Shown here is a 76-nucleotide RNA sequence from Aedes aegypti, a member of the family "drz-agam-1 ribozyme". It scores 50 bits against the family's covariance model. Its family is annotated with catalytic activity in the Gene Ontology. A reference for the family is Webb et al. (2009), "Widespread occurrence of self-cleaving ribozymes", Science.
[Rfam]
RNA sequence: UGCCCAGCAACUCCUAUCCCUACCUCCUCGCGGUACUGGCCGGGGUACGAGUAACCUAACCCGUAACGUGGGUAGA
Numbered sequence: 001u002g003c004c005c006a007g008c009a010a011c012u013c014c015u016a017u018c019c020c021u022a023c024c025u026c027c028u029c030g031c032g033g034u035a036c037u038g039g040c041c042g043g044g045g046u047a048c049g050a051g052u053a054a055c056c057u058a059a060c061c062c063g064u065a066a067c068g069u070g071g072g073u074a075g076a
Stems, first nucleotide, its partner, number of pairs: 014075006021068001022034003046065004051060002